[Rfam]
RNA sequence: CUCAAGGGGUUACGCGCGAGUACCUCGUGAGGCGACAGCCGAAACAUCGCGUCCUCGAUCCAUCAUCACUCAGGAGGACGUAUG
Numbered sequence: 001c002u003c004a005a006g007g008g009g010u011u012a013c014g015c016g017c018g019a020g021u022a023c024c025u026c027g028u029g030a031g032g033c034g035a036c037a038g039c040c041g042a043a044a045c046a047u048c049g050c051g052u053c054c055u056c057g058a059u060c061c062a063u064c065a066u067c068a069c070u071c072a073g074g075a076g077g078a079c080g081u082a083u084g
Stems, first nucleotide, its partner, number of pairs: 006026005049081008
RNA: chrB-a RNA